[Rfam]
RNA sequence: GAGAAACAUGUGAGAAACAUGUUCGCCGAAAGCCCAAGGUUUCCUGGGGAAGGUUAAUCCUCCCAGGGUUAGUCGGAACCUAAGGCGAGGCCGAGAGGCGUAGUCGAUGGACAUCAGGUUAAUAAUCCUGAACCUAACAUUGGAGCGAAGCAGGGGUGGAGAAAGGUAGCCAAGCCGGUUAUUGGAUUCCGGUUUAAGCGCGUAGGGAGAUCUUCUAGGUAAGUCCGGAAGGUCGUUAAUCCUGAGACGUGAUGAGGAGGCCGCAAGGCUGAAGUUGGUGAUCCUCUGCUCACGAGAAAAGCUGCUAAGCGUUGAAGAUGUUAGUCCGUACUGCAAACCGACUCAGGUGGGCAGGAAGAGAAUUCCGAGGCGAU
Numbered sequence: 001g002a003g004a005a006a007c008a009u010g011u012g013a014g015a016a017a018c019a020u021g022u023u024c025g026c027c028g029a030a031a032g033c034c035c036a037a038g039g040u041u042u043c044c045u046g047g048g049g050a051a052g053g054u055u056a057a058u059c060c061u062c063c064c065a066g067g068g069u070u071a072g073u074c075g076g077a078a079c080c081u082a083a084g085g086c087g088a089g090g091c092c093g094a095g096a097g098g099c100g101u102a103g104u105c106g107a108u109g110g111a112c113a114u115c116a117g118g119u120u121a122a123u124a125a126u127c128c129u130g131a132a133c134c135u136a137a138c139a140u141u142g143g144a145g146c147g148a149a150g151c152a153g154g155g156g157u158g159g160a161g162a163a164a165g166g167u168a169g170c171c172a173a174g175c176c177g178g179u180u181a182u183u184g185g186a187u188u189c190c191g192g193u194u195u196a197a198g199c200g201c202g203u204a205g206g207g208a209g210a211u212c213u214u215c216u217a218g219g220u221a222a223g224u225c226c227g228g229a230a231g232g233u234c235g236u237u238a239a240u241c242c243u244g245a246g247a248c249g250u251g252a253u254g255a256g257g258a259g260g261c262c263g264c265a266a267g268g269c270u271g272a273a274g275u276u277g278g279u280g281a282u283c284c285u286c287u288g289c290u291c292a293c294g295a296g297a298a299a300a301g302c303u304g305c306u307a308a309g310c311g312u313u314g315a316a317g318a319u320g321u322u323a324g325u326c327c328g329u330a331c332u333g334c335a336a337a338c339c340g341a342c343u344c345a346g347g348u349g350g351g352c353a354g355g356a357a358g359a360g361a362a363u364u365c366c367g368a369g370g371c372g373a374u
Base pairs, nucleotide, nucleotide: 005023006022007021008020009019010018024372025371026370027369032352033351034350035349038332039331043067044066045065046064047063048062052060053059074328075327076326077325079110080109084105085104086103088101090099091098092097114131115130116129117128118127134324135323136322137321138320139319140318141317145310146309149306150305151304152303153302159291160290161289164285165284166283169279170278171277172276173275174193175192176191177190178189194255195254198250199249200248205243206242207241210233211232212231213230214229215228216227218226219225259270260269261268262267338347339346354366355365356364357363

About this RNA
The record is a 374-nucleotide part of an RNA from uncultured bacterium Ak20-3, which matches "Bacterial large subunit ribosomal RNA" in Rfam. The sequence is in the family's curated seed alignment.